[Rfam]
Shown here is a 190-nucleotide sequence from Mesorhizobium sp. L-8-10, a member of the family "Brucella sRNA CI27".
RNA sequence: GGGGACUCUAAAGCAUGUCUCCUCAAAGUGGGCACCGGUUUCGGGACAAGGACAUGCUUCAAAUCAAGAACCGACAGCGUGUCGCGUGAAUCCGCUUCACGCGACACGCUAUCGGUGCACCCGGCAAUCGUAAUGGAACGAGAAGGAGCCACACAUGAGCAGUCCAAUGCGGAUCGGUGUGGUUGGCGGC
Dot-bracket structure: ............((((((((.(((.((((.(....).)))).)))....))))))))..(.(((((.(.(((((.((((((((((.(((.......))).)))))))))).))))).)...(((.................................................)))...))))).)....
Numbered sequence: 001g002g003g004g005a006c007u008c009u010a011a012a013g014c015a016u017g018u019c020u021c022c023u024c025a026a027a028g029u030g031g032g033c034a035c036c037g038g039u040u041u042c043g044g045g046a047c048a049a050g051g052a053c054a055u056g057c058u059u060c061a062a063a064u065c066a067a068g069a070a071c072c073g074a075c076a077g078c079g080u081g082u083c084g085c086g087u088g089a090a091u092c093c094g095c096u097u098c099a100c101g102c103g104a105c106a107c108g109c110u111a112u113c114g115g116u117g118c119a120c121c122c123g124g125c126a127a128u129c130g131u132a133a134u135g136g137a138a139c140g141a142g143a144a145g146g147a148g149c150c151a152c153a154c155a156u157g158a159g160c161a162g163u164c165c166a167a168u169g170c171g172g173a174u175c176g177g178u179g180u181g182g183u184u185g186g187c188g189g190c
Stems, first nucleotide, its partner, number of pairs: 013057008022045003026041004031036001060186001062184005068118001070116005076110010087099003122176003
On this family, see Dong et al., FEMS Microbiol Lett 2014: "Identification of novel sRNAs in Brucella abortus 2308". Rfam classes the family as a small RNA.